A member of the RNA family "mir-375 microRNA precursor family" from Capitella teleta, 65 nucleotides long. NCBI's taxonomy places the organism under Eukaryota, Bilateria, Scolecida, Capitellidae, Capitella. Pairs were carried over by alignment from the consensus structure, which was predicted with RNAalifold. A reference for the family is Chen et al. (2005), "The developmental miRNA profiles of zebrafish as determined by small RNA cloning", Genes Dev. Its family is annotated with RISC complex and miRNA-mediated post-transcriptional gene silencing in the Gene Ontology.
[Rfam]
RNA sequence: GUUAGCAUGGGCCAAACGUGCAAGACUGUGUUUGAGCUGUUUUGUUCGUCCGGCUCGCGUUAACA
Numbered sequence: 001g002u003u004a005g006c007a008u009g010g011g012c013c014a015a016a017c018g019u020g021c022a023a024g025a026c027u028g029u030g031u032u033u034g035a036g037c038u039g040u041u042u043u044g045u046u047c048g049u050c051c052g053g054c055u056c057g058c059g060u061u062a063a064c065a
Base pairs, nucleotide, nucleotide: 001064002063003062005060006059008057009056010055011054012053013052017048018047020045021044022043023042025040026039